Shown here is a 167-nucleotide sequence from Candidatus Hydrogenisulfobacillus filiaventi, a member of the family "M-box riboswitch aptamer (ykoK leader)".
RNA sequence: AAGAGUCCUCGUUAGGCCAGGCGUCUACGCAAACAUACGCCGCUGCCCCGAAACGUCGAAAGACGCCAAGGGGUCACAAGGUUUGGCCCGCUUAAGGCUUUACCUAAUGCGGCUGAAACGCAGGUUUCUACGUUGCGCAGUGCCAAAGCUCGACUAGGAGGAUGCGC
Numbered sequence: 001a002a003g004a005g006u007c008c009u010c011g012u013u014a015g016g017c018c019a020g021g022c023g024u025c026u027a028c029g030c031a032a033a034c035a036u037a038c039g040c041c042g043c044u045g046c047c048c049c050g051a052a053a054c055g056u057c058g059a060a061a062g063a064c065g066c067c068a069a070g071g072g073g074u075c076a077c078a079a080g081g082u083u084u085g086g087c088c089c090g091c092u093u094a095a096g097g098c099u100u101u102a103c104c105u106a107a108u109g110c111g112g113c114u115g116a117a118a119c120g121c122a123g124g125u126u127u128c129u130a131c132g133u134u135g136c137g138c139a140g141u142g143c144c145a146a147a148g149c150u151c152g153a154c155u156a157g158g159a160g161g162a163u164g165c166g167c
Stems, first nucleotide, its partner, number of pairs: 005163006011154002013095001015150003020144003025140002028137005039113005045074005054065004080104003086098003115128003
Dot-bracket structure: ....(((((((([.(((..(((..((.(((((......(((((.(((((....((((....))))....))))).....(((...(((......])))...)))....))))).(((........)))....))))).)).)))...)))..))...))))))....
About the family: M-box riboswitch, also know as ykoK leader is described as a metaloregulatory RNA that sense divalent metals and function as a genetic control element of genes related to divalent metal transport in bacteria. It was first reported upstream of the B.subtilis ykoK gene and genes with related functions in other bacteria. Lineage of the source: Bacteria > Bacillati > Clostridia > Eubacteriales > Candidatus Hydrogenisulfobacillus.